[Rfam]
RNA sequence: UAAGACGGUCCGGGUUGUGCUUUUUUUCACCAAAAAAUUCCGGUCAUUUAACUUGAAAAUUUGAGGGAAGACCUCAUUUAAUCUCCAGUAGCAAUUUGACCUGAAUGGGGGAAUUAUGCGCCUGGAUCGUCUUAC
Numbered sequence: 001u002a003a004g005a006c007g008g009u010c011c012g013g014g015u016u017g018u019g020c021u022u023u024u025u026u027u028c029a030c031c032a033a034a035a036a037a038u039u040c041c042g043g044u045c046a047u048u049u050a051a052c053u054u055g056a057a058a059a060u061u062u063g064a065g066g067g068a069a070g071a072c073c074u075c076a077u078u079u080a081a082u083c084u085c086c087a088g089u090a091g092c093a094a095u096u097u098g099a100c101c102u103g104a105a106u107g108g109g110g111g112a113a114u115u116a117u118g119c120g121c122c123u124g125g126a127u128c129g130u131c132u133u134a135c
Stems, first nucleotide, its partner, number of pairs: 002133011014122001016120004023113001024042001025035001027034001052065005067078002070075001082112005088106002